[Rfam]
RNA sequence: CGCCCGCCGUACCGCGAGAUCUCCACCCGCUCCGUCCCUGGCGUCCCUUCCCCGGUGCCAGGCAUGGGGGCGGAUGGGGAUCUGGCGGUACGGCGAGCGAUGC
Numbered sequence: 001c002g003c004c005c006g007c008c009g010u011a012c013c014g015c016g017a018g019a020u021c022u023c024c025a026c027c028c029g030c031u032c033c034g035u036c037c038c039u040g041g042c043g044u045c046c047c048u049u050c051c052c053c054g055g056u057g058c059c060a061g062g063c064a065u066g067g068g069g070g071c072g073g074a075u076g077g078g079g080a081u082c083u084g085g086c087g088g089u090a091c092g093g094c095g096a097g098c099g100a101u102g103c
Base pairs, nucleotide, nucleotide: 010090011089012088013087014086015085018082019081021079022078023077024076025075027073028072029071030070031069032068033066034065035064037062038061039060040059041058042057043056044055

The family of this 103-nucleotide sequence from Asanoa hainanensis is "mraW RNA".
The family's consensus secondary structure is taken from published work.
It is annotated as a cis-regulatory element.
Rfam 15.1 lists 851 matches to the family in 821 species.
The source organism's lineage runs through Bacteria, Actinomycetota, Actinomycetes, Micromonosporales and Asanoa.